[Rfam]
mir-9256 microRNA precursor family: a 67-nucleotide sequence from Cnephaeus nilssonii.
Rfam 15.1 lists 31,772 matches to the family in 5 species.
The source organism's lineage runs through Eukaryota, Metazoa, Gnathostomata, Boreoeutheria and Cnephaeus.

RNA sequence: GUAUACACUGAGUGGCCAGAUCAUGAUGAUCUCUGAACGCAUUAUAAUCUGGCCACCCAGUGUAUAU
Numbered sequence: 001g002u003a004u005a006c007a008c009u010g011a012g013u014g015g016c017c018a019g020a021u022c023a024u025g026a027u028g029a030u031c032u033c034u035g036a037a038c039g040c041a042u043u044a045u046a047a048u049c050u051g052g053c054c055a056c057c058c059a060g061u062g063u064a065u066a067u
Base pairs, nucleotide, nucleotide: 004064005063006062007061008060009059010058012056013055014054015053016052017051019049020048021047023045024044025043026042027041028040
Dot-bracket structure: ...(((((((.((((((.(((.((((((...........)))))).))).)))))).)))))))...